[Rfam]
RNA sequence: GAGGAAAAGAAGAAGCACCCGCUUCUCACCUGAUUGACGCUGAUGUGGCAGUUGCCAGGUUUUACGGAAACUCUUUAUUUUUAAUUGUUUCGUAAAGUGUGGGUGUUAAAUCCCGCACUUUUUUUAUUUG
Numbered sequence: 001g002a003g004g005a006a007a008a009g010a011a012g013a014a015g016c017a018c019c020c021g022c023u024u025c026u027c028a029c030c031u032g033a034u035u036g037a038c039g040c041u042g043a044u045g046u047g048g049c050a051g052u053u054g055c056c057a058g059g060u061u062u063u064a065c066g067g068a069a070a071c072u073c074u075u076u077a078u079u080u081u082u083a084a085u086u087g088u089u090u091c092g093u094a095a096a097g098u099g100u101g102g103g104u105g106u107u108a109a110a111u112c113c114c115g116c117a118c119u120u121u122u123u124u125u126a127u128u129u130g
Stems, first nucleotide, its partner, number of pairs: 011026006028060003036053003039049002098117006105111002

Background:
Shown here is a 130-nucleotide sequence from Mesobacillus zeae, a member of the family "Ribosomal protein L20 leader". A search with the family's covariance model found it, with a score of 80 bits. The organism belongs to Mesobacillus, within Bacteria. Rfam describes the family as follows. This family is a putative r-protein leader autoregulatory structure found in B. subtilis and other low-GC Gram-positive bacteria. By type it is a cis-regulatory leader. The literature on the family includes a 1994 paper in Prog Nucleic Acid Res Mol Biol by Zengel and Lindahl, "Diverse mechanisms for regulating ribosomal protein synthesis in Escherichia coli".